[Rfam]
Nucleotides: 114
Stems, first nucleotide, its partner, number of pairs: 002109006012098002017094004026072003
Number, partner (000 for none) and nucleotide at each position: 001000g002109u003108g004107c005106u006105g007104g008000c009000u010000c011000a012098g013097c014000a015000g016000u017094g018093u019092g020091g021000g022000u023000a024000c025000u026072u027071c028070g029000u030000u031000g032000a033000g034000u035000u036000u037000u038000c039000a040000c041000u042000g043000g044000a045000a046000c047000u048000a049000c050000c051000u052000a053000a054000u055000a056000u057000a058000a059000g060000g061000u062000c063000g064000u065000g066000g067000g068000u069000u070028c071027g072026a073000u074000u075000c076000c077000c078000a079000c080000a081000u082000u083000u084000g085000c086000a087000c088000c089000a090000u091020c092019c093018a094017c095000a096000c097013g098012c099000g100000c101000a102000g103000u104007c105006c106005a107004g108003c109002a110000u111000u112000u113000u114000u
The record is a 114-nucleotide RNA from Patiria miniata, which matches "Vault RNA" in Rfam.
Taxonomically the source falls in Patiria (Eukaryota, Opisthokonta, Eleutherozoa, Asteroidea).
The match comes from Rfam's covariance-model search (52 bits).
The family's RNA type in Rfam is non-coding RNA gene.
About the family: This family of RNAs are found as part of the enigmatic vault ribonucleoprotein complex. The complex consists of a major vault protein (MVP), two minor vault proteins (VPARP and TEP1), and several small untranslated RNA molecules.
Rfam 15.1 lists 2,873 matches to the family in 431 species.